[Rfam]
RNA sequence: GGCGAUAAACGGCGUGCGCAAUAGCUGUUGCGGACCCGGGGGCAGUACCCGGCGCCUCCACCAGUUUCGCCGGGCCCUGGCGGAUGUGCGUUCCGCGCGCUGCCGCCGGCCUGGCUCCUCAUUGGGGGCGAAACAGGAUCGACGUGCAGUAAAAGGUUCGCUUUUCGCCCGGCAUUGUACCACCGUUAUCGGGCUACCAUCACAAAUGCUAACGACAACGAUCGUUUGGCACUCGCUGCCUAG
Numbered sequence: 001g002g003c004g005a006u007a008a009a010c011g012g013c014g015u016g017c018g019c020a021a022u023a024g025c026u027g028u029u030g031c032g033g034a035c036c037c038g039g040g041g042g043c044a045g046u047a048c049c050c051g052g053c054g055c056c057u058c059c060a061c062c063a064g065u066u067u068c069g070c071c072g073g074g075c076c077c078u079g080g081c082g083g084a085u086g087u088g089c090g091u092u093c094c095g096c097g098c099g100c101u102g103c104c105g106c107c108g109g110c111c112u113g114g115c116u117c118c119u120c121a122u123u124g125g126g127g128g129c130g131a132a133a134c135a136g137g138a139u140c141g142a143c144g145u146g147c148a149g150u151a152a153a154a155g156g157u158u159c160g161c162u163u164u165u166c167g168c169c170c171g172g173c174a175u176u177g178u179a180c181c182a183c184c185g186u187u188a189u190c191g192g193g194c195u196a197c198c199a200u201c202a203c204a205a206a207u208g209c210u211a212a213c214g215a216c217a218a219c220g221a222u223c224g225u226u227u228g229g230c231a232c233u234c235g236c237u238g239c240c241u242a243g
Stems, first nucleotide, its partner, number of pairs: 001169005014159001016157002026148003030145003036052005053130007170185003
The record is a 243-nucleotide sequence from an Alphaproteobacteria bacterium, which matches "permuted transfer-messenger RNA" in Rfam. The literature on the family includes a 1996 paper in RNA by Williams and Bartel, "Phylogenetic analysis of tmRNA secondary structure". The base pairs follow the family's consensus structure, which is taken from published work. Rfam classes the family as a non-coding RNA gene. Rfam's curators put it in the seed alignment.